[Rfam]
RNA: MIR5565 microRNA precursor family
Organism: Miscanthus lutarioriparius
RNA sequence: GUAGUCGGAUUCGCAUCAAUCCACAUGUGUUGGGGUGGAUUGGAGUAGAACUUGAGCUAAAUUUCACCCCAAUCCACCUCAACAUAUAUGGAUUGAGAUGAAUUCAACA
Dot-bracket structure: ...((.(((((((..((((((((.((((((((..(((((((((.((...................)).)))))))))..)))))))).))))))))..))))))).)).